Rfam assigns this 414-nucleotide RNA sequence from Candidatus Paraburkholderia kirkii to the family "Bacterial RNase P class A".
[Rfam]
RNA sequence: AAAGCGGGCCAGGCAAUCGCGGCUUCUAAGGUUUCGGCCGAAGGAGGCGAGGAAAGUCCGGACUCCACAGGGCAGGGUGAUGGCUAACGGCCAUCCGUGGCGACACGCGGAACAGGGCAACAGAAAGCAGACCGCCGAUGGCUCGGGACGCGAGUCUGGAGAUCAGGUAAGGGUGAAACGGUGCGGUAAGAGCGCACCGCGGACGUCGCGAGACGUUCCGGCACGGCAACCUCCACCCGGAGCAAUUCCAAAUAGGCAGGCGCGCAUCCUCGCGAUGCAGGACGGGGCCCCCGUUCGUCUGCGGGUAGGAAGCUUGAGCACGUCAGCAAUGGCGCGUCUAGAGGAAUGAUUGCCACGCGCGCCGGUGUCAAGCCGGCGCGUGCACAGAAUCCGGCUUAUCGGCCCGCUUUGUCG
Numbered sequence: 001a002a003a004g005c006g007g008g009c010c011a012g013g014c015a016a017u018c019g020c021g022g023c024u025u026c027u028a029a030g031g032u033u034u035c036g037g038c039c040g041a042a043g044g045a046g047g048c049g050a051g052g053a054a055a056g057u058c059c060g061g062a063c064u065c066c067a068c069a070g071g072g073c074a075g076g077g078u079g080a081u082g083g084c085u086a087a088c089g090g091c092c093a094u095c096c097g098u099g100g101c102g103a104c105a106c107g108c109g110g111a112a113c114a115g116g117g118c119a120a121c122a123g124a125a126a127g128c129a130g131a132c133c134g135c136c137g138a139u140g141g142c143u144c145g146g147g148a149c150g151c152g153a154g155u156c157u158g159g160a161g162a163u164c165a166g167g168u169a170a171g172g173g174u175g176a177a178a179c180g181g182u183g184c185g186g187u188a189a190g191a192g193c194g195c196a197c198c199g200c201g202g203a204c205g206u207c208g209c210g211a212g213a214c215g216u217u218c219c220g221g222c223a224c225g226g227c228a229a230c231c232u233c234c235a236c237c238c239g240g241a242g243c244a245a246u247u248c249c250a251a252a253u254a255g256g257c258a259g260g261c262g263c264g265c266a267u268c269c270u271c272g273c274g275a276u277g278c279a280g281g282a283c284g285g286g287g288c289c290c291c292c293g294u295u296c297g298u299c300u301g302c303g304g305g306u307a308g309g310a311a312g313c314u315u316g317a318g319c320a321c322g323u324c325a326g327c328a329a330u331g332g333c334g335c336g337u338c339u340a341g342a343g344g345a346a347u348g349a350u351u352g353c354c355a356c357g358c359g360c361g362c363c364g365g366u367g368u369c370a371a372g373c374c375g376g377c378g379c380g381u382g383c384a385c386a387g388a389a390u391c392c393g394g395c396u397u398a399u400c401g402g403c404c405c406g407c408u409u410u411g412u413c414g
Stems, first nucleotide, its partner, number of pairs: 001410010011399001012354007020049002023046005054397003058394005063242004070290004075238005080094005095109001096107004110233002115231002117227002132172002134168003139165002142161003180198006199222001200220003203216005246311004256302006281295005318337002321334005
Dot-bracket structure: ((((((((((((((((((.((.(((((..............))))).))....[[[.[[[[[((((...[[[[.((((((((((.....)))))(((((....)))).)((...((((.............(((((..((.(((..............)))..)))))..)).......((((((.......))))))(((((((((....))))).))).)...))..)))))))))))))...((((......((((((...................(((((.]]]]))))).)))))).....))))......((.(((((....))))).))..........)))))))...................................]]]]]]]].).))))))))))....

Background
Taxonomically the source falls in Candidatus Paraburkholderia kirkii (Bacteria, Pseudomonadati, Pseudomonadota, Burkholderiales). By type it is a ribozyme.